[Rfam]
The record is a 57-nucleotide RNA from Bordetella petrii, which matches "nhaA-I RNA" in Rfam. Rfam's curators write: Acidobacteria, Alphaproteobacteria, Betaproteobacteria and Gammaproteobacteria, Verrucomicrobia, cand. division NC10.
RNA sequence: GGGUGUCGGCCGCAACCUGCGGCAAGACAGGUUCAUUGCGCUGGUCGGGCCGCCACG
Numbered sequence: 001g002g003g004u005g006u007c008g009g010c011c012g013c014a015a016c017c018u019g020c021g022g023c024a025a026g027a028c029a030g031g032u033u034c035a036u037u038g039c040g041c042u043g044g045u046c047g048g049g050c051c052g053c054c055a056c057g
Stems, first nucleotide, its partner, number of pairs: 005028003009023003039057002042055004